[Rfam]
RNA sequence: CACUGACAUCAGAGAUUCGUUCUGGGAACCUUGCCCCACUGCCAGAUAGGCAUUCAUGCCUAACUCUUUCAUCUGUUCUUCACCAAUCACUUUGGUGAUCAGAUUAUCAGCACUGUCAGCAAGCUGGCGUGCCUGUGAUGCAAGGUACGCAGCAUUACAGAUAUUGGGUGGCAUAUUGACCAGAUCUUUUGC
Numbered sequence: 001c002a003c004u005g006a007c008a009u010c011a012g013a014g015a016u017u018c019g020u021u022c023u024g025g026g027a028a029c030c031u032u033g034c035c036c037c038a039c040u041g042c043c044a045g046a047u048a049g050g051c052a053u054u055c056a057u058g059c060c061u062a063a064c065u066c067u068u069u070c071a072u073c074u075g076u077u078c079u080u081c082a083c084c085a086a087u088c089a090c091u092u093u094g095g096u097g098a099u100c101a102g103a104u105u106a107u108c109a110g111c112a113c114u115g116u117c118a119g120c121a122a123g124c125u126g127g128c129g130u131g132c133c134u135g136u137g138a139u140g141c142a143a144g145g146u147a148c149g150c151a152g153c154a155u156u157a158c159a160g161a162u163a164u165u166g167g168g169u170g171g172c173a174u175a176u177u178g179a180c181c182a183g184a185u186c187u188u189u190u191g192c
Stems, first nucleotide, its partner, number of pairs: 005186002012032003016028003020024001033043001035041001050059002062077003079131001081129001083127003087123001092119006099109001133160003137156005164183004169178001
Dot-bracket structure: ....((.....(((.(((.(...).))).)))(.(.....).)......((......))..(((..........))).(.(.(((.(....((((((.(.........)....))))))...).))).).).(((.(((((..........))))).)))...((((.(........).)))).))......
Record summary:
Yersinia sRNA 276: a 192-nucleotide sequence from Xenorhabdus cabanillasii. The family's RNA type in Rfam is antisense RNA. NCBI's taxonomy places the organism under Bacteria, Pseudomonadati, Gammaproteobacteria, Morganellaceae, Xenorhabdus. It scores 132 bits against the family's covariance model. For this family Rfam cites "Transcriptomic profiling of Yersinia pseudotuberculosis reveals reprogramming of the Crp regulon by temperature and uncovers Crp as a master regulator of small RNAs" (Nuss et al., PLoS Genet, 2015).